[Rfam]
RNA sequence: CACCCUGCACAGUAGUAGUAUCACAGCCAGUGAGGUUUAUCUGAGGCACAAUUAUUGCUAAUUGAAAUCUUUUCACAAUAUCUUGCCAUAAUGACUUGAAAUAUAGUCAUAUAGUCAGUAUUGGCAAUUAUUGACAGUCUCUAUGGAGA
Number, nucleotide and partner (000 for none) at each position: 001c000002a000003c000004c000005c000006u000007g000008c000009a000010c000011a000012g000013u000014a000015g000016u000017a000018g000019u000020a052021u051022c000023a000024c000025a000026g047027c046028c045029a000030g000031u000032g000033a000034g042035g041036u000037u000038u000039a000040u000041c035042u034043g000044a000045g028046g027047c026048a000049c000050a000051a021052u020053u000054a000055u000056u000057g000058c000059u000060a000061a000062u000063u000064g000065a000066a000067a000068u000069c000070u000071u000072u000073u000074c000075a000076c000077a000078a000079u000080a000081u000082c000083u000084u000085g125086c124087c123088a121089u120090a119091a000092u117093g116094a115095c114096u113097u000098g000099a000100a000101a000102u000103a000104u000105a000106g000107u000108c000109a000110u000111a000112u000113a096114g095115u094116c093117a092118g000119u090120a089121u088122u000123g087124g086125c085126a000127a000128u000129u000130a000131u000132u000133g000134a000135c000136a000137g000138u149139c148140u147141c146142u000143a000144u000145g000146g141147a140148g139149a138
The record is a 149-nucleotide RNA sequence from Colobus angolensis, which matches "U4 spliceosomal RNA" in Rfam.
The source organism's lineage runs through Eukaryota, Eumetazoa, Vertebrata, Amniota and Colobus angolensis.